[Rfam]
The family of this 126-nucleotide RNA from Aotus nancymaae is "U4atac minor spliceosomal RNA". The family has 61 seed sequences and 1,648 matches in Rfam 15.1. A reference for the family is Marz et al. (2008), "Evolution of spliceosomal snRNA genes in metazoan animals", J Mol Evol. From the family's description: U4atac is an essential component of the minor U12-type spliceosome complex which is required for removal of the rarer class of eukaryotic introns (AT-AC, U12-type). The family is grouped with related families in Rfam's "U4 clan". The match comes from Rfam's covariance-model search (97 bits).

RNA sequence: GCCGUCCUUUCCUUGGGGUUGCACUACCGUCUAAUGAGUGCAUAAUGAGGGCAGUACUGCUAAUGCCUAUACAUCGCACCUGCAUCAACUGGAGCUUUGCUUUACCUUGGUACAAUUUUUGGAAAA
Numbered sequence: 001g002c003c004g005u006c007c008u009u010u011c012c013u014u015g016g017g018g019u020u021g022c023a024c025u026a027c028c029g030u031c032u033a034a035u036g037a038g039u040g041c042a043u044a045a046u047g048a049g050g051g052c053a054g055u056a057c058u059g060c061u062a063a064u065g066c067c068u069a070u071a072c073a074u075c076g077c078a079c080c081u082g083c084a085u086c087a088a089c090u091g092g093a094g095c096u097u098u099g100c101u102u103u104a105c106c107u108u109g110g111u112a113c114a115a116u117u118u119u120u121g122g123a124a125a126a
Stems, first nucleotide, its partner, number of pairs: 006018004021060003026055002029052004038046002082113001084111004090104006